A member of the RNA family "Plant signal recognition particle RNA" from Artemisia annua, 306 nucleotides long. The family's consensus secondary structure is taken from published work. The family has 63 seed sequences and 4,988 matches in Rfam 15.1. Its family is annotated with SRP-dependent cotranslational protein targeting to membrane, signal sequence recognition and signal recognition particle, endoplasmic reticulum targeting in the Gene Ontology. It is annotated as a non-coding RNA gene. A search with the family's covariance model found it, with a score of 234 bits.
[Rfam]
RNA sequence: GCCGAGCUUAGUAACGUGAGCUUGUAACUCGAGUGAGGGCUUUAAAGUGGGUUGGACUGUGAUGGAACCAAGAUAGGUUGGGUCAAGUUGUUGCAAUAUCUGGCUUGCCCGUUCCAAGUUCAGAGCUGGACCAUGUCCUUCGAGCGAAGGCUUGGGCUUCAUGGUUCCUAGAGUGGAGGGCAAUGCGUUAGGCUGGUUUCACAGAGCUGCGAAAACUUCCCGCUCUGGACAGUGGAAGGGAUAACAAGCCGGUGCACUCUUGGCUCAAAUAACCGACUUGGUUCCCUCUAAAGAACACCCACUUUU
Numbered sequence: 001g002c003c004g005a006g007c008u009u010a011g012u013a014a015c016g017u018g019a020g021c022u023u024g025u026a027a028c029u030c031g032a033g034u035g036a037g038g039g040c041u042u043u044a045a046a047g048u049g050g051g052u053u054g055g056a057c058u059g060u061g062a063u064g065g066a067a068c069c070a071a072g073a074u075a076g077g078u079u080g081g082g083u084c085a086a087g088u089u090g091u092u093g094c095a096a097u098a099u100c101u102g103g104c105u106u107g108c109c110c111g112u113u114c115c116a117a118g119u120u121c122a123g124a125g126c127u128g129g130a131c132c133a134u135g136u137c138c139u140u141c142g143a144g145c146g147a148a149g150g151c152u153u154g155g156g157c158u159u160c161a162u163g164g165u166u167c168c169u170a171g172a173g174u175g176g177a178g179g180g181c182a183a184u185g186c187g188u189u190a191g192g193c194u195g196g197u198u199u200c201a202c203a204g205a206g207c208u209g210c211g212a213a214a215a216c217u218u219c220c221c222g223c224u225c226u227g228g229a230c231a232g233u234g235g236a237a238g239g240g241a242u243a244a245c246a247a248g249c250c251g252g253u254g255c256a257c258u259c260u261u262g263g264c265u266c267a268a269a270u271a272a273c274c275g276a277c278u279u280g281g282u283u284c285c286c287u288c289u290a291a292a293g294a295a296c297a298c299c300c301a302c303u304u305u306u
Stems, first nucleotide, its partner, number of pairs: 001040003004023007028037003044305009054296001057293002060290002064285009074275001076274004080266008092256004100252008109239002112237005118230009128167008139156007168173001175220005184213001186211003193204003
Dot-bracket structure: ((((((((((......)))))))....(((....))))))...(((((((((.(..((.((..(((((((((.(.((((((((((((....((((....((((((((.((.(((((.(((((((((.((((((((...(((((((....)))))))...))))))))(....).(((((....(.(((....(((......)))....))).)..))))).)))))))))..))))))).....))))))))))))..))))))))....))))).)))))))))...)).))..)))))))))).